[Rfam]
RNA sequence: AAUAGGAGAAUGAUAAAUUAGAUUUUUCCUCCUGAUUUUUAGUAUUUUUCUCUUGAAAAAUUUCAAAUUCAACUAAAAAUACUAAAAAUCAGGGGGGAAAAUCUGAUUUGUCGUUCUCUUAUU
Numbered sequence: 001a002a003u004a005g006g007a008g009a010a011u012g013a014u015a016a017a018u019u020a021g022a023u024u025u026u027u028c029c030u031c032c033u034g035a036u037u038u039u040u041a042g043u044a045u046u047u048u049u050c051u052c053u054u055g056a057a058a059a060a061u062u063u064c065a066a067a068u069u070c071a072a073c074u075a076a077a078a079a080u081a082c083u084a085a086a087a088a089u090c091a092g093g094g095g096g097g098a099a100a101a102u103c104u105g106a107u108u109u110g111u112c113g114u115u116c117u118c119u120u121a122u123u
Base pairs, nucleotide, nucleotide: 001123002122003121004120005119006118007117008116009115010114011113012112013111014110015109016108017107018106019105020104021103022102023101024100025099026098027097029095030094031093032092033091034090035089036088037087038086039085041083042082045079046078047077048076